Rfam assigns this 88-nucleotide sequence from Olea europaea to the family "Small nucleolar RNA Z159/U59".
Its family is annotated with RNA processing and nucleolus in the Gene Ontology.
The base pairs follow the family's consensus structure, which was predicted with PFOLD.
The organism belongs to Olea europaea, within Eukaryota.
Clan: SNORD59 clan.
[Rfam]
RNA sequence: GCCUCUGAUGAUGACUAAACGAUUAUACUUUCGUUCUUCUGAAAAUAUUUCCAUGUGGAAGAUUUAUGGAGACCUGAACUGAAGAGGC
Number, nucleotide and partner (000 for none) at each position: 001g000002c000003c086004u085005c084006u083007g000008a000009u000010g000011a000012u000013g000014a000015c000016u000017a000018a000019a000020c000021g000022a000023u000024u000025a000026u000027a000028c000029u000030u000031u000032c000033g000034u000035u000036c000037u000038u000039c000040u000041g000042a000043a000044a000045a000046u000047a000048u000049u000050u000051c000052c000053a000054u000055g000056u000057g000058g000059a000060a000061g000062a000063u000064u000065u000066a000067u000068g000069g000070a000071g000072a000073c000074c000075u000076g000077a000078a000079c000080u000081g000082a000083a006084g005085a004086g003087g000088c000